[Rfam]
Rfam assigns this 65-nucleotide RNA sequence from Microtus ochrogaster to the family "mir-344 microRNA precursor family". The organism belongs to Microtus, within Eukaryota. The base pairs follow the family's consensus structure, which was predicted with RNAalifold. A reference for the family is Chiang et al. (2010), "Mammalian microRNAs: experimental evaluation of novel and previously annotated genes", Genes Dev. The match comes from Rfam's covariance-model search (54 bits).
RNA sequence: UUGUCAGUCAGGCUGCUGGCUAAAAUCCAGCUGUUAGCUGGAUUCAGUCAAAGCUUGGUUAUAAG
Numbered sequence: 001u002u003g004u005c006a007g008u009c010a011g012g013c014u015g016c017u018g019g020c021u022a023a024a025a026u027c028c029a030g031c032u033g034u035u036a037g038c039u040g041g042a043u044u045c046a047g048u049c050a051a052a053g054c055u056u057g058g059u060u061a062u063a064a065g
Base pairs, nucleotide, nucleotide: 007059008058009057011055012054013053014052017050018049019048020047021046023044024043027041028040029039030038031037